A member of the RNA family "A. fumigatus sRNA Afu_309" from Emericellopsis cladophorae, 263 nucleotides long.
[Rfam]
RNA sequence: UCUUCUUCUUCAACCACGGAUCUGUGCCAUUCUUCCUUUGCGGCCUUGAGGCUCGACCUCGAGGCUGUCAGAGUUGAGGAGUGUGCAGUUCGACACUCGAGUGGAGCCAUCAACUCGUUAUGGUGUUAUUUCCUUGUCGACAGGUCCAAGAGUAACGGUUUCUGCGUCCACACGGACGUGGUCCCCGAGGCACUCUAUUCCGAACCUUUUUGCCGAGACCGUUGGUCGGUGAGGUGGGAGGAAAACCAGGGAUGUCUACAUUU
Number, nucleotide and partner (000 for none) at each position: 001u000002c000003u000004u000005c000006u000007u000008c000009u000010u000011c000012a000013a000014c000015c000016a000017c000018g147019g146020a145021u144022c143023u142024g141025u140026g086027c085028c083029a082030u081031u000032c079033u078034u077035c076036c073037u072038u071039u070040g069041c067042g066043g065044c064045c063046u062047u061048g060049a000050g058051g057052c000053u000054c000055g000056a000057c051058c050059u000060c048061g047062a046063g045064g044065c043066u042067g041068u000069c040070a039071g038072a037073g036074u000075u000076g035077a034078g033079g032080a000081g030082u029083g028084u000085g027086c026087a000088g000089u000090u000091c000092g000093a000094c139095a000096c000097u000098c136099g135100a000101g000102u128103g127104g126105a000106g124107c123108c122109a000110u000111c000112a000113a000114c000115u000116c000117g000118u000119u000120a000121u000122g108123g107124u106125g000126u104127u103128a102129u000130u000131u000132c000133c000134u000135u099136g098137u000138c000139g094140a025141c024142a023143g022144g021145u020146c019147c018148a000149a000150g000151a000152g000153u000154a000155a000156c000157g000158g184159u000160u000161u000162c000163u180164g179165c178166g177167u176168c175169c174170a000171c000172a000173c000174g169175g168176a167177c166178g165179u164180g163181g000182u000183c000184c158185c000186c000187g000188a000189g256190g255191c254192a000193c251194u250195c249196u248197a000198u000199u000200c000201c000202g000203a000204a000205c241206c240207u239208u238209u237210u000211u000212g235213c234214c233215g000216a000217g227218a226219c225220c224221g000222u000223u000224g220225g219226u218227c217228g000229g000230u000231g000232a000233g214234g213235u212236g000237g209238g208239a207240g206241g205242a000243a000244a000245a000246c000247c000248a196249g195250g194251g193252a000253u000254g191255u190256c189257u000258a000259c000260a000261u000262u000263u000